[Rfam]
RNA sequence: AUGCGUACCGGUGAUGGGGCUCACCGAAACCGCGGCCGAUGGCCGCUGACGGUCCCUGGUUGUUU
Numbered sequence: 001a002u003g004c005g006u007a008c009c010g011g012u013g014a015u016g017g018g019g020c021u022c023a024c025c026g027a028a029a030c031c032g033c034g035g036c037c038g039a040u041g042g043c044c045g046c047u048g049a050c051g052g053u054c055c056c057u058g059g060u061u062g063u064u065u
Base pairs, nucleotide, nucleotide: 010025011024012023013022016056017055018054019053020052021051032046033045034044035043

Rfam assigns this 65-nucleotide sequence to the family "Fluoride riboswitch aptamer (crcB RNA motif)".
A search with the family's covariance model found it, with a score of 36 bits.
Pairs were carried over by alignment from the consensus structure, which is taken from published work.